[Rfam]
RNA sequence: UUAUCGGUGAAAGUCCGAUACGGGUAAUUGCCAAGAAGCCCGUUAGCUAAUUCCGAUGCGUCGCAGUAAUGUGGAGUGCUAAGCGGAAGGAUAAAGUACUCGCUUAAAUAGCGAAGCGAUCGAAAGUGCAGGUCGUAACAUAA
Numbered sequence: 001u002u003a004u005c006g007g008u009g010a011a012a013g014u015c016c017g018a019u020a021c022g023g024g025u026a027a028u029u030g031c032c033a034a035g036a037a038g039c040c041c042g043u044u045a046g047c048u049a050a051u052u053c054c055g056a057u058g059c060g061u062c063g064c065a066g067u068a069a070u071g072u073g074g075a076g077u078g079c080u081a082a083g084c085g086g087a088a089g090g091a092u093a094a095a096g097u098a099c100u101c102g103c104u105u106a107a108a109u110a111g112c113g114a115a116g117c118g119a120u121c122g123a124a125a126g127u128g129c130a131g132g133u134c135g136u137a138a139c140a141u142a143a
Stems, first nucleotide, its partner, number of pairs: 020043005051088004055080001057078003064071002096117002100114004121135002
The record is a 143-nucleotide RNA sequence from Lutispora thermophila, which matches "Group II catalytic intron D1-D4-4" in Rfam. About the family: Group II introns are found in rRNA, tRNA and mRNA of organelles in fungi, plants and protists, and also in mRNA in bacteria. It scores 85 bits against the family's covariance model. Gene Ontology term of the family: Group II intron splicing.